[Rfam]
RNA sequence: UGUCCAACAAUAUCCUGGUGCUGAGUGAGUUGCAGAUGGAGACUCCAGCAUCAGUGAUUUUGUUGAGGA
Dot-bracket structure: .....(((((.((((((((((((......................))))))))).))).))))).....